Notes:
This 86-nucleotide RNA sequence from Medicago truncatula belongs to the Rfam family "MIR2617 microRNA precursor family". Gene Ontology terms of the family: miRNA-mediated post-transcriptional gene silencing and RISC complex. A search with the family's covariance model found it, with a score of 90 bits.
RNA sequence: AUGUAGUGUAGCAUGCCUGUUUGGUGAAUUACUCUGAUGAAUAUUUUGUAUUUAAUUGCUUUUGGAUAACGGGGUGUUACAUGAAG
Numbered sequence: 001a002u003g004u005a006g007u008g009u010a011g012c013a014u015g016c017c018u019g020u021u022u023g024g025u026g027a028a029u030u031a032c033u034c035u036g037a038u039g040a041a042u043a044u045u046u047u048g049u050a051u052u053u054a055a056u057u058g059c060u061u062u063u064g065g066a067u068a069a070c071g072g073g074g075u076g077u078u079a080c081a082u083g084a085a086g
Stems, first nucleotide, its partner, number of pairs: 002086001004084001006082009016073006
Lineage of the source: Eukaryota > Tracheophyta > Gunneridae > Hologalegina > Medicago.
The base pairs follow the family's consensus structure, which was predicted with RNAalifold.